This 145-nucleotide RNA sequence from Sphaerisporangium melleum belongs to the Rfam family "c-di-AMP riboswitch aptamer (ydaO/yuaA leader)".
[Rfam]
RNA sequence: CGCCGUCCAGCGUCGAGUCCCAGGGGUCCACCAGACCCACGGGAGCCGGGGAACCAAUCUUUCCGGGGUGAAUCCGCGCGAGCGGUAGGGCGACUCCACGCCCGAACCCGUCAGCUAACCCGGUAGGCGUCACUGGAGAGGAGAC
Numbered sequence: 001c002g003c004c005g006u007c008c009a010g011c012g013u014c015g016a017g018u019c020c021c022a023g024g025g026g027u028c029c030a031c032c033a034g035a036c037c038c039a040c041g042g043g044a045g046c047c048g049g050g051g052a053a054c055c056a057a058u059c060u061u062u063c064c065g066g067g068g069u070g071a072a073u074c075c076g077c078g079c080g081a082g083c084g085g086u087a088g089g090g091c092g093a094c095u096c097c098a099c100g101c102c103c104g105a106a107c108c109c110g111u112c113a114g115c116u117a118a119c120c121c122g123g124u125a126g127g128c129g130u131c132a133c134u135g136g137a138g139a140g141g142a143g144a145c
Stems, first nucleotide, its partner, number of pairs: 001129004006044003045124006055065001066109003074085004088103004

Notes: Taxonomically the source falls in Sphaerisporangium (Bacteria, Bacillati, Actinomycetota, Streptosporangiales). Rfam links the family to the GO terms regulation of gene expression and cyclic-di-AMP binding.